[Rfam]
RNA sequence: GGCCCGAUCUUGAGGCAGGAACUGAGUAGUUGGUGAACUCGCUCUAUGUUGUUCGUUCACUUGCUACACGGUUCCUGUCCCAAGAUCGAGUC
Numbered sequence: 001g002g003c004c005c006g007a008u009c010u011u012g013a014g015g016c017a018g019g020a021a022c023u024g025a026g027u028a029g030u031u032g033g034u035g036a037a038c039u040c041g042c043u044c045u046a047u048g049u050u051g052u053u054c055g056u057u058c059a060c061u062u063g064c065u066a067c068a069c070g071g072u073u074c075c076u077g078u079c080c081c082a083a084g085a086u087c088g089a090g091u092c
Stems, first nucleotide, its partner, number of pairs: 001092003005088008014079011026067002
Source information
Shown here is a 92-nucleotide RNA from Oryza sativa, a member of the family "MIR1861 microRNA precursor family". Rfam 15.1 lists 210 matches to the family in 9 species.